[Rfam]
RNA sequence: AUAAUUCCUCGUUAGGUGAGGCUACUGUAUAGACAGAUGCCACUGCCCAGAAAUGUCGAGAGACACCAAUGGGUUAGCAGAUAUGGCCGGCUUAAGGCUUUAUCUAAUGUGGCUGGCGAACAGCCUAGCUAUACAGAGCUAAAACUCAAACGAGUGGGGAGUGAA
Numbered sequence: 001a002u003a004a005u006u007c008c009u010c011g012u013u014a015g016g017u018g019a020g021g022c023u024a025c026u027g028u029a030u031a032g033a034c035a036g037a038u039g040c041c042a043c044u045g046c047c048c049a050g051a052a053a054u055g056u057c058g059a060g061a062g063a064c065a066c067c068a069a070u071g072g073g074u075u076a077g078c079a080g081a082u083a084u085g086g087c088c089g090g091c092u093u094a095a096g097g098c099u100u101u102a103u104c105u106a107a108u109g110u111g112g113c114u115g116g117c118g119a120a121c122a123g124c125c126u127a128g129c130u131a132u133a134c135a136g137a138g139c140u141a142a143a144a145c146u147c148a149a150a151c152g153a154g155u156g157g158g159g160a161g162u163g164a165a
Stems, first nucleotide, its partner, number of pairs: 005161006011151002013095001015146003020140003025136008039113005045074005054065004080104004086098003115125003
The record is a 165-nucleotide sequence from Carboxydocella thermautotrophica, which matches "M-box riboswitch aptamer (ykoK leader)" in Rfam. Taxonomically the source falls in Carboxydocella thermautotrophica (Bacteria, Bacillota, Eubacteriales, Carboxydocella). The match comes from Rfam's covariance-model search (155 bits). Rfam's curators write: M-box riboswitch, also know as ykoK leader is described as a metaloregulatory RNA that sense divalent metals and function as a genetic control element of genes related to divalent metal transport in bacteria.